Record summary:
Rfam assigns this 75-nucleotide sequence from Streptomyces violaceusniger to the family "ASpks TB sRNA". Rfam's curators put it in the seed alignment.

[Rfam]
RNA sequence: CUUCACGGAGCCCAGCCACAGCGGCCGAUCCGCAUCCCGGUCCUGACCAUAGGUGGCCAACAACGCCUGCGCCUC
Numbered sequence: 001c002u003u004c005a006c007g008g009a010g011c012c013c014a015g016c017c018a019c020a021g022c023g024g025c026c027g028a029u030c031c032g033c034a035u036c037c038c039g040g041u042c043c044u045g046a047c048c049a050u051a052g053g054u055g056g057c058c059a060a061c062a063a064c065g066c067c068u069g070c071g072c073c074u075c
Stems, first nucleotide, its partner, number of pairs: 015025003031071003038065002044059002047056003